[Rfam]
RNA sequence: AGCAGACCGCCGCCUAAUCGCCGCAAGGCGAGCCGGGGACCCACCCGUGUUAUGGGGUGAAUCCACGUCACAGUGGUAGGGAUCGCUUCCGUCCCGAACCCGUCAGCUAACUCGGUCGGCGGCCGACGGAAGGAAAG
Numbered sequence: 001a002g003c004a005g006a007c008c009g010c011c012g013c014c015u016a017a018u019c020g021c022c023g024c025a026a027g028g029c030g031a032g033c034c035g036g037g038g039a040c041c042c043a044c045c046c047g048u049g050u051u052a053u054g055g056g057g058u059g060a061a062u063c064c065a066c067g068u069c070a071c072a073g074u075g076g077u078a079g080g081g082a083u084c085g086c087u088u089c090c091g092u093c094c095c096g097a098a099c100c101c102g103u104c105a106g107c108u109a110a111c112u113c114g115g116u117c118g119g120c121g122g123c124c125g126a127c128g129g130a131a132g133g134a135a136a137g
Base pairs, nucleotide, nucleotide: 011121012120013119014118018031019030020029032116033115034114035113036112037111042054043053055101056100057099063076064075065074066073079095080094081093082092

This 137-nucleotide RNA sequence from Actinoplanes friuliensis belongs to the Rfam family "c-di-AMP riboswitch aptamer (ydaO/yuaA leader)".
Lineage of the source: Bacteria > Actinomycetota > Actinomycetes > Actinoplanes > Actinoplanes friuliensis.
Pairs were carried over by alignment from the consensus structure.